RNA sequence: UCCCGAUUGUCCAAAAAUCGGGAUUACUGAAGAGGCACACCUUCAUUGCCGGCAGUGCGGUAGGGAUCUCCCAUACCAAAGCUGAGGCAGACAAAGCGCGUAUUCGCCGCAAGGCGGGAACGCACAGCUGCGCGUCGCCGCAUGUCCUGGUUC
Numbered sequence: 001u002c003c004c005g006a007u008u009g010u011c012c013a014a015a016a017a018u019c020g021g022g023a024u025u026a027c028u029g030a031a032g033a034g035g036c037a038c039a040c041c042u043u044c045a046u047u048g049c050c051g052g053c054a055g056u057g058c059g060g061u062a063g064g065g066a067u068c069u070c071c072c073a074u075a076c077c078a079a080a081g082c083u084g085a086g087g088c089a090g091a092c093a094a095a096g097c098g099c100g101u102a103u104u105c106g107c108c109g110c111a112a113g114g115c116g117g118g119a120a121c122g123c124a125c126a127g128c129u130g131c132g133c134g135u136c137g138c139c140g141c142a143u144g145u146c147c148u149g150g151u152u153c
Stems, first nucleotide, its partner, number of pairs: 001023008034050004082090001099144003